[Rfam]
RNA sequence: GGCUACUUCCCAUGUCCGUCGGCGUUGCCGACAACAUGCCCAGGUAGCCAAGACCUUCAAGGCUACGGUGCGUUGCGACGCACUGGUUGUUCUCUUUGCCAAGACGCUCACGGGCGUUCCCUUCCAUCCCCUUGGGGCAGUGACUGC
Numbered sequence: 001g002g003c004u005a006c007u008u009c010c011c012a013u014g015u016c017c018g019u020c021g022g023c024g025u026u027g028c029c030g031a032c033a034a035c036a037u038g039c040c041c042a043g044g045u046a047g048c049c050a051a052g053a054c055c056u057u058c059a060a061g062g063c064u065a066c067g068g069u070g071c072g073u074u075g076c077g078a079c080g081c082a083c084u085g086g087u088u089g090u091u092c093u094c095u096u097u098g099c100c101a102a103g104a105c106g107c108u109c110a111c112g113g114g115c116g117u118u119c120c121c122u123u124c125c126a127u128c129c130c131c132u133u134g135g136g137g138c139a140g141u142g143a144c145u146g147c
Base pairs, nucleotide, nucleotide: 011038012037013036014035015033018032019031020030021029022028023027044066045065046064047063048062049061052088053087054086055085067084068083069082070081071080072079073078116147117146124140127137128136129135130134
Record summary:
Shown here is a 147-nucleotide RNA from Thioalkalivibrio sulfidiphilus, a member of the family "radC RNA". The sequence is in the family's curated seed alignment. Lineage of the source: Bacteria > Pseudomonadota > Chromatiales > Thioalkalivibrio > Thioalkalivibrio sulfidiphilus. Pairs were carried over by alignment from the consensus structure, which is taken from published work.